[Rfam]
RNA sequence: GGUAAAGUAAGCUAAAUGUUAAGCUUUUGGGUUCAUACCUCAAAAAUAGAAGGAUAAAAACCUCUCUUUAUC
Numbered sequence: 001g002g003u004a005a006a007g008u009a010a011g012c013u014a015a016a017u018g019u020u021a022a023g024c025u026u027u028u029g030g031g032u033u034c035a036u037a038c039c040u041c042a043a044a045a046a047u048a049g050a051a052g053g054a055u056a057a058a059a060a061c062c063u064c065u066c067u068u069u070a071u072c
Stems, first nucleotide, its partner, number of pairs: 001072007010025004027043005048065003052062002

A member of the RNA family "tRNA", 72 nucleotides long. It is annotated as a transfer RNA. For this family Rfam cites "The tertiary structure of tRNA and the development of the genetic code" (Hou, Trends Biochem Sci, 1993).